This 83-nucleotide sequence from Roseovarius litorisediminis belongs to the Rfam family "chrB-a RNA". It scores 54 bits against the family's covariance model. The family has 163 seed sequences and 347 matches in Rfam 15.1. The source organism's lineage runs through Bacteria, Pseudomonadati, Pseudomonadota, Alphaproteobacteria and Roseovarius.
[Rfam]
RNA sequence: GACAUGGGGUAUCCAGCGACAUCCCCGUGAGGCGCCAGCCCAAAGUCGCAUCCACUGCCUGUUUUACCAGAGGAUGUGCCAUG
Numbered sequence: 001g002a003c004a005u006g007g008g009g010u011a012u013c014c015a016g017c018g019a020c021a022u023c024c025c026c027g028u029g030a031g032g033c034g035c036c037a038g039c040c041c042a043a044a045g046u047c048g049c050a051u052c053c054a055c056u057g058c059c060u061g062u063u064u065u066a067c068c069a070g071a072g073g074a075u076g077u078g079c080c081a082u083g
Stems, first nucleotide, its partner, number of pairs: 005027005048077006
The base pairs follow the family's consensus structure, which is taken from published work.